[Rfam]
Nucleotides: 112
Stems, first nucleotide, its partner, number of pairs: 001079004009038001011037006021030002039067003044063003048058001050057001082101008
Number, partner (000 for none) and nucleotide at each position: 001079g002078g003077u004076c005000g006000a007000g008000a009038g010000a011037c012036c013035c014034a015033g016032c017000g018000a019000c020000a021030a022029g023000c024000c025000c026000u027000g028000g029022c030021u031000g032016g033015c034014u035013g036012g037011g038009c039067g040066g041065c042000a043000a044063c045062c046061c047000u048058c049000a050057c051000g052000g053000a054000u055000g056000u057050g058048g059000c060000g061046g062045g063044g064000u065041g066040c067039u068000c069000c070000a071000g072000g073000u074000g075000a076004g077003a078002c079001c080000c081000g082101g083100u084099c085098c086097g087096a088095c089094a090000g091000c092000c093000c094089u095088g096087u097086c098085g099084g100083a101082c102000a103000a104000g105000c106000a107000c108000a109000u110000u111000c112000g
A member of the RNA family "SAM (S-adenosyl methionine) riboswitch aptamer" from Barrientosiimonas humi, 112 nucleotides long. The literature on the family includes a 2008 paper in RNA by Weinberg et al., "The aptamer core of SAM-IV riboswitches mimics the ligand-binding site of SAM-I riboswitches". It scores 77 bits against the family's covariance model.